Small nucleolar RNA snoR136: a 143-nucleotide RNA from Salvia splendens.
RNA sequence: GUGCUUUACUUGGACGUUUUAUGUUGUCACACAUGAAACUAUAUAAUGUGGCAUUUGUUAUAAGUGAAGCUAUAUAAAUGUGUUCUCCUCGCUAUCCGGUUGGUGCUUCUGAUAGCUCAUUUGGACGUUGGUGAACUACCAUU
Numbered sequence: 001g002u003g004c005u006u007u008a009c010u011u012g013g014a015c016g017u018u019u020u021a022u023g024u025u026g027u028c029a030c031a032c033a034u035g036a037a038a039c040u041a042u043a044u045a046a047u048g049u050g051g052c053a054u055u056u057g058u059u060a061u062a063a064g065u066g067a068a069g070c071u072a073u074a075u076a077a078a079u080g081u082g083u084u085c086u087c088c089u090c091g092c093u094a095u096c097c098g099g100u101u102g103g104u105g106c107u108u109c110u111g112a113u114a115g116c117u118c119a120u121u122u123g124g125a126c127g128u129u130g131g132u133g134a135a136c137u138a139c140c141a142u143u
Base pairs, nucleotide, nucleotide: 001073002072003070004069005068008065009064010063011062012061023055025053026052027051028050029049030048033047034046082136083135084134085133087131088130090127091126095125096124097123098122099121104114105113
Notes: The match comes from Rfam's covariance-model search (61 bits). Rfam classes the family as an H/ACA-box small nucleolar RNA. The family has 8 seed sequences and 452 matches in Rfam 15.1. On this family, see Chen and Wu, Nucleic Acids Res 2009: "Mining small RNA sequencing data: a new approach to identify small nucleolar RNAs in Arabidopsis".